[Rfam]
RNA sequence: AACGAGGUACAGUUCUGUUUAUGUGUGGCAUUUUCAGUAAAGAAGUCCUGAGUAAACACGUUGUCGUUGAAUACCGCUUCUCUGCCGAACCUUAAAUUAGUGCCUCAUGCAGUUAUGUGUCAGUUUUAUCUAGGUAAACGCCAGCAGGCGAAGAAAACAGUCUAAGGAAUUUUGCAAAUGGCAAAGAUUAAAGGUCAAGUUAAGUGGUUCAACGAGUCUAAAGGUUUUGGUUUCAUUACUCCGGCUGAUGGCAGCAAAGACGUGUUCGUACACUUCUCCGCUAUCCAGGGUAACGGCUUCAAAACUCUGGCUGAAGGCCAGAACGUUGAGUUCGAAAUUCAGGACGGCCAGAAAGGUCCGGCUGCAGUUAACGUAACUGCUAUCUGAUACAAGACCACUCUUCUUGUAUAAAAGCCUCGCCUGCGCGGGGCUUUUGCAU
Numbered sequence: 001a002a003c004g005a006g007g008u009a010c011a012g013u014u015c016u017g018u019u020u021a022u023g024u025g026u027g028g029c030a031u032u033u034u035c036a037g038u039a040a041a042g043a044a045g046u047c048c049u050g051a052g053u054a055a056a057c058a059c060g061u062u063g064u065c066g067u068u069g070a071a072u073a074c075c076g077c078u079u080c081u082c083u084g085c086c087g088a089a090c091c092u093u094a095a096a097u098u099a100g101u102g103c104c105u106c107a108u109g110c111a112g113u114u115a116u117g118u119g120u121c122a123g124u125u126u127u128a129u130c131u132a133g134g135u136a137a138a139c140g141c142c143a144g145c146a147g148g149c150g151a152a153g154a155a156a157a158c159a160g161u162c163u164a165a166g167g168a169a170u171u172u173u174g175c176a177a178a179u180g181g182c183a184a185a186g187a188u189u190a191a192a193g194g195u196c197a198a199g200u201u202a203a204g205u206g207g208u209u210c211a212a213c214g215a216g217u218c219u220a221a222a223g224g225u226u227u228u229g230g231u232u233u234c235a236u237u238a239c240u241c242c243g244g245c246u247g248a249u250g251g252c253a254g255c256a257a258a259g260a261c262g263u264g265u266u267c268g269u270a271c272a273c274u275u276c277u278c279c280g281c282u283a284u285c286c287a288g289g290g291u292a293a294c295g296g297c298u299u300c301a302a303a304a305c306u307c308u309g310g311c312u313g314a315a316g317g318c319c320a321g322a323a324c325g326u327u328g329a330g331u332u333c334g335a336a337a338u339u340c341a342g343g344a345c346g347g348c349c350a351g352a353a354a355g356g357u358c359c360g361g362c363u364g365c366a367g368u369u370a371a372c373g374u375a376a377c378u379g380c381u382a383u384c385u386g387a388u389a390c391a392a393g394a395c396c397a398c399u400c401u402u403c404u405u406g407u408a409u410a411a412a413a414g415c416c417u418c419g420c421c422u423g424c425g426c427g428g429g430g431c432u433u434u435u436g437c438a439u
Base pairs, nucleotide, nucleotide: 001014002013003012004010022243023242027240028239030237042233045232047230048229049224058219060217061216065214066213067212068211069210070209073208074207075206079180081178083176084175085174090167091166092165093164094163096161140149141148142147182194247339248338249337259267260266272326273325275323277322278321280319281317282316285310286309287308288307289306345360346359347358361384363382364381365379366378367377368376369375389404391402392401393400394399409436410435411434412433413432414431415430416429417428418427419426420425

The record is a 439-nucleotide RNA sequence from Klebsiella pneumoniae, which matches "cspA thermoregulator" in Rfam. A reference for the family is Giuliodori et al. (2010), "The cspA mRNA is a thermosensor that modulates translation of the cold-shock protein CspA", Mol Cell. It scores 141 bits against the family's covariance model. Rfam classes the family as an RNA thermoregulator. Gene Ontology terms of the family: response to temperature stimulus and regulation of translation.